[Rfam]
Rfam assigns this 98-nucleotide sequence from Fusarium piperis to the family "tRNA".

RNA sequence: GGGCGAAUGGUUUAGUGGUAUAAUACUCCCUUAGCAUGAUUCAUCUGGAUGAUUCAGGCACUUGGGAGUGGUCCAGGGUUCGAUUCCCUGUUCGUCCA
Numbered sequence: 001g002g003g004c005g006a007a008u009g010g011u012u013u014a015g016u017g018g019u020a021u022a023a024u025a026c027u028c029c030c031u032u033a034g035c036a037u038g039a040u041u042c043a044u045c046u047g048g049a050u051g052a053u054u055c056a057g058g059c060a061c062u063u064g065g066g067a068g069u070g071g072u073c074c075a076g077g078g079u080u081c082g083a084u085u086c087c088c089u090g091u092u093c094g095u096c097c098a
Base pairs, nucleotide, nucleotide: 001097002096003095004094005093006092007091010024011023012022026068027067028066029065030064074090075089076088077087078086
Taxonomically the source falls in Fusarium solani species complex (Eukaryota, sordariomyceta, Hypocreomycetidae, Fusarium). A search with the family's covariance model found it, with a score of 52 bits. Pairs were carried over by alignment from the consensus structure, which is taken from published work.